[Rfam]
A member of the RNA family "Small nucleolar RNA SNORD113/SNORD114 family" from Mesocricetus auratus, 71 nucleotides long.
The family's RNA type in Rfam is C/D-box small nucleolar RNA.
Rfam describes the family as follows. The imprinted human domain at 14q32 contains two clusters of tandemly repeated small nucleolar RNAs named 14q(I) and 14q(II) snoRNAs. These two clusters are named SNORD113 and SNORD114 respectively in the HGNC approved gene symbol nomenclature. The snoRNAs found in both clusters are clearly related and are represented here by a single family. These snoRNAs are intron encoded and are processed from the tissue-specific non-coding human MEG8 RNA, which lies downstream of the imprinted genes DLK1 and GTL2. snoRNAs 14q(I) and 14q(II) differ from previously identified C/D box snoRNAs in their expression profiles and lack of complementarity to rRNA and snRNA. Homologues of these snoRNAs are found in the imprinted non-coding mouse transcript Rian, and in the rat non-coding Bsr (brain-specific repetitive) RNA.
Nucleotides: 071
Base pairs, nucleotide, nucleotide: 003068004067005066006065
Number, partner (000 for none) and nucleotide at each position: 001000a002000u003068g004067a005066u006065u007000g008000a009000u010000a011000a012000u013000g014000a015000u016000c017000a018000c019000u020000g021000g022000u023000g024000g025000c026000a027000c028000a029000u030000g031000a032000g033000u034000c035000a036000c037000a038000c039000a040000g041000a042000u043000g044000a045000c046000u047000a048000u049000a050000u051000u052000u053000c054000u055000g056000g057000a058000a059000c060000c061000c062000u063000g064000a065006g066005a067004u068003c069000u070000a071000c